[Rfam]
RNA sequence: GCUGUCCCGGAUCUGUCAGCACCACAGGCACAGCUGCUGGGCUGUGUCUAUGACACUGGGGCAAAGAGCAAGUGUCUAUUUCUAUACCCAGUGUUCAGAAGCCAGUCAGCACUAAGAAUGGGCCUGACAUUU
Numbered sequence: 001g002c003u004g005u006c007c008c009g010g011a012u013c014u015g016u017c018a019g020c021a022c023c024a025c026a027g028g029c030a031c032a033g034c035u036g037c038u039g040g041g042c043u044g045u046g047u048c049u050a051u052g053a054c055a056c057u058g059g060g061g062c063a064a065a066g067a068g069c070a071a072g073u074g075u076c077u078a079u080u081u082c083u084a085u086a087c088c089c090a091g092u093g094u095u096c097a098g099a100a101g102c103c104a105g106u107c108a109g110c111a112c113u114a115a116g117a118a119u120g121g122g123c124c125u126g127a128c129a130u131u132u
Stems, first nucleotide, its partner, number of pairs: 003063008024051001026049002074124001076122001082121003087116001092111004097106001
RNA: Small nucleolar RNA SNORA43